[Rfam]
Nucleotides: 103
Base pairs, nucleotide, nucleotide: 018089019088020087021086022085023084024083025082029049030048031047033045034044035043059075060074061073062072063071
Number, partner (000 for none) and nucleotide at each position: 001000g002000a003000c004000a005000c006000a007000a008000a009000c010000u011000c012000u013000u014000c015000a016000a017000a018089c019088u020087c021086u022085u023084g024083u025082a026000u027000a028000a029049g030048c031047c032000c033045g034044c035043g036000a037000a038000u039000a040000c041000g042000g043035c044034g045033c046000a047031g048030g049029c050000g051000u052000a053000u054000c055000u056000a057000c058000a059075g060074g061073c062072a063071a064000c065000c066000g067000u068000u069000a070000a071063u072062u073061g074060c075059c076000c077000c078000a079000g080000g081000c082025u083024a084023c085022a086021a087020g088019a089018g090000a091000c092000g093000c094000u095000u096000c097000g098000c099000a100000u101000c102000g103000a

Notes
Rfam assigns this 103-nucleotide RNA sequence from Cohnella fermenti to the family "Purine riboswitch aptamer". Taxonomically the source falls in Cohnella (Bacteria, Bacillati, Bacillota, Bacilli). The family's consensus secondary structure is taken from published work.